[Rfam]
This 79-nucleotide RNA sequence from Nyctereutes procyonoides belongs to the Rfam family "Small nucleolar RNA SNORD45". The source organism's lineage runs through Eukaryota, Teleostomi, Dipnotetrapodomorpha, Caniformia and Nyctereutes. It is annotated as a C/D-box small nucleolar RNA. Pairs were carried over by alignment from the consensus structure, which was predicted with PFOLD.

RNA sequence: GGUCGAUGAUGAGCUGGCAUGUAUUCUGAAUCUGCAGUUGGUGAUUACUCCUUCAGCUCUAGAAUUACUCUGAGACCUG
Numbered sequence: 001g002g003u004c005g006a007u008g009a010u011g012a013g014c015u016g017g018c019a020u021g022u023a024u025u026c027u028g029a030a031u032c033u034g035c036a037g038u039u040g041g042u043g044a045u046u047a048c049u050c051c052u053u054c055a056g057c058u059c060u061a062g063a064a065u066u067a068c069u070c071u072g073a074g075a076c077c078u079g
Stems, first nucleotide, its partner, number of pairs: 001077004